Shown here is an 81-nucleotide RNA sequence from Nitrosomonas eutropha, a member of the family "c-di-GMP-I riboswitch aptamer". The sequence is in the family's curated seed alignment. About the family: GEMM was predicted in a large-scale screen for bacterial structured RNA regulatory elements.
RNA sequence: AACCGACAAAGGCCAACCUGUCGUGAGGCAGGGGCGCAAAGUUUCCGAUCCUGAUUGCAUCAGGAAAGCGGGACUGCCGAA
Numbered sequence: 001a002a003c004c005g006a007c008a009a010a011g012g013c014c015a016a017c018c019u020g021u022c023g024u025g026a027g028g029c030a031g032g033g034g035c036g037c038a039a040a041g042u043u044u045c046c047g048a049u050c051c052u053g054a055u056u057g058c059a060u061c062a063g064g065a066a067a068g069c070g071g072g073a074c075u076g077c078c079g080a081a
Base pairs, nucleotide, nucleotide: 012037013036017032018031019030020029021028022027040075041074042073043072045071046070047069049065050064051063052062053061054060